Small nucleolar RNA SNORA1: a 120-nucleotide RNA sequence from Nyctereutes procyonoides.
Gene Ontology terms of the family: RNA processing and nucleolus.
Rfam's curators write: ACA1 is a member of the H/ACA class of snoRNA that guide the sites of modification of uridines to pseudouridines.
It is annotated as an H/ACA-box small nucleolar RNA.
The family's consensus secondary structure was predicted with PFOLD.
The match comes from Rfam's covariance-model search (91 bits).
RNA sequence: UCUCUCAAAUCUUUAAAAAAAAUUUUUUUUAAAAGAAGUUUUGUGGCUAUAUUGAAACACAAGUUAUGCUUCCAUCACAGCAGAUUUAUUGCAGUGGUGACAAUGAGACUUAUAACAUUU
Numbered sequence: 001u002c003u004c005u006c007a008a009a010u011c012u013u014u015a016a017a018a019a020a021a022a023u024u025u026u027u028u029u030u031a032a033a034a035g036a037a038g039u040u041u042u043g044u045g046g047c048u049a050u051a052u053u054g055a056a057a058c059a060c061a062a063g064u065u066a067u068g069c070u071u072c073c074a075u076c077a078c079a080g081c082a083g084a085u086u087u088a089u090u091g092c093a094g095u096g097g098u099g100a101c102a103a104u105g106a107g108a109c110u111u112a113u114a115a116c117a118u119u120u
Stems, first nucleotide, its partner, number of pairs: 014031007059113001061111003073099006